[Rfam]
RNA: Small nucleolar RNA SNORA3/SNORA45 family
Organism: Helopsaltes ochotensis
RNA sequence: CCCGAGGCUGUAGAGUCACAUCUGGGCCUCCCUGUGGUCCUGGUGUGCUGGAGUCCUCGGACAGGAACCACUAAUCUCUAUUCACUGGCUGUUCCCUCCCUGGCUCAGCCAGUCACCGAGUUAGUGACAGCA
Numbered sequence: 001c002c003c004g005a006g007g008c009u010g011u012a013g014a015g016u017c018a019c020a021u022c023u024g025g026g027c028c029u030c031c032c033u034g035u036g037g038u039c040c041u042g043g044u045g046u047g048c049u050g051g052a053g054u055c056c057u058c059g060g061a062c063a064g065g066a067a068c069c070a071c072u073a074a075u076c077u078c079u080a081u082u083c084a085c086u087g088g089c090u091g092u093u094c095c096c097u098c099c100c101u102g103g104c105u106c107a108g109c110c111a112g113u114c115a116c117c118g119a120g121u122u123a124g125u126g127a128c129a130g131c132a
Base pairs, nucleotide, nucleotide: 002060003059004058005057006056007054008053009052014049015048017047018046019045020044021043022042025039026038027037028036071124072123073122074121076120077119078118084113085112086111087110088109090107091106094103095102